The record is a 122-nucleotide RNA sequence from Papaver somniferum, which matches "U5 spliceosomal RNA" in Rfam. Gene Ontology terms of the family: spliceosomal tri-snRNP complex assembly and U5 snRNP.
RNA sequence: CAGCCGUACGGUAAGCACAGAGCGAACUAUUCUUUCGCCUUUUACUAAAGAAUACCGUGUGCUUGCCGUUUAUGAGCGGCAUACGCCCAUUUUUGGAGGGUUUCUCUUUUCCAUGAGGAACC
Numbered sequence: 001c002a003g004c005c006g007u008a009c010g011g012u013a014a015g016c017a018c019a020g021a022g023c024g025a026a027c028u029a030u031u032c033u034u035u036c037g038c039c040u041u042u043u044a045c046u047a048a049a050g051a052a053u054a055c056c057g058u059g060u061g062c063u064u065g066c067c068g069u070u071u072a073u074g075a076g077c078g079g080c081a082u083a084c085g086c087c088c089a090u091u092u093u094u095g096g097a098g099g100g101u102u103u104c105u106c107u108u109u110u111c112c113a114u115g116a117g118g119a120a121c122c
Stems, first nucleotide, its partner, number of pairs: 003080004009068011028054008098122001100121006
The base pairs follow the family's consensus structure, which is taken from published work.